[Rfam]
The family of this 72-nucleotide sequence from Bacillus subtilis is "tRNA". Lineage of the source: Bacteria > Bacillati > Bacillota > Bacillaceae > Bacillus.
RNA sequence: UCCACAGUAGCUCAGUGGUAGAGCUAUCGGCUGUUAACCGAUCGGUCGCAGGUUCGAAUCCUGCCUGUGGAG
Numbered sequence: 001u002c003c004a005c006a007g008u009a010g011c012u013c014a015g016u017g018g019u020a021g022a023g024c025u026a027u028c029g030g031c032u033g034u035u036a037a038c039c040g041a042u043c044g045g046u047c048g049c050a051g052g053u054u055c056g057a058a059u060c061c062u063g064c065c066u067g068u069g070g071a072g
Stems, first nucleotide, its partner, number of pairs: 001071007010024004026042005048064005